RNA sequence: CCGGUUGUUCCAUCAACCGUUCCCUACCCGGACAUGCGGAGUUGGUAACGACUCGGUGUGAAGCUUCGGGGACAAUGUAGCCACUGGAUAUCCGGUACACCAAGCCGCGAGGCGACGUGGAAACUGCCAGCACGAAGGCGGUGAGGCGC
Numbered sequence: 001c002c003g004g005u006u007g008u009u010c011c012a013u014c015a016a017c018c019g020u021u022c023c024c025u026a027c028c029c030g031g032a033c034a035u036g037c038g039g040a041g042u043u044g045g046u047a048a049c050g051a052c053u054c055g056g057u058g059u060g061a062a063g064c065u066u067c068g069g070g071g072a073c074a075a076u077g078u079a080g081c082c083a084c085u086g087g088a089u090a091u092c093c094g095g096u097a098c099a100c101c102a103a104g105c106c107g108c109g110a111g112g113c114g115a116c117g118u119g120g121a122a123a124c125u126g127c128c129a130g131c132a133c134g135a136a137g138g139c140g141g142u143g144a145g146g147c148g149c
Base pairs, nucleotide, nucleotide: 002019003018004017005016006015007014028069029068030067031066032065033060034059035058036057037056039054040053041052042051043050044049083096084095085094086093087092098119099118100117105112106111123142124141125140126139127138128137
Description:
Rfam assigns this 149-nucleotide RNA from Paramesorhizobium endophyticum to the family "Group II catalytic intron D1-D4-7". Group II introns are found in rRNA, tRNA and mRNA of organelles in fungi, plants and protists, and also in mRNA in bacteria. Taxonomically the source falls in Paramesorhizobium (Bacteria, Pseudomonadota, Hyphomicrobiales, Phyllobacteriaceae). Gene Ontology term of the family: Group II intron splicing.